A member of the RNA family "Plastid-psbM 3UTR RNA" from Morella rubra, 82 nucleotides long. A reference for the family is Richter et al. (2023), "Retrograde signaling in plants: A critical review focusing on the GUN pathway and beyond", Plant Commun. Rfam 15.1 lists 627 matches to the family in 337 species. NCBI's taxonomy places the organism under Eukaryota, Streptophytina, Fagales, Myricaceae, Morella. The family's consensus secondary structure was predicted with LocARNA.

RNA sequence: GAUUCGAUAGUAUGGUAGAAAGAAAUAUAUGAAUCUUUCUACCAUACUUAUUAUUGUUAUUGUAGUAUAAAAAGUCGUACUC
Numbered sequence: 001g002a003u004u005c006g007a008u009a010g011u012a013u014g015g016u017a018g019a020a021a022g023a024a025a026u027a028u029a030u031g032a033a034u035c036u037u038u039c040u041a042c043c044a045u046a047c048u049u050a051u052u053a054u055u056g057u058u059a060u061u062g063u064a065g066u067a068u069a070a071a072a073a074g075u076c077g078u079a080c081u082c
Stems, first nucleotide, its partner, number of pairs: 009048015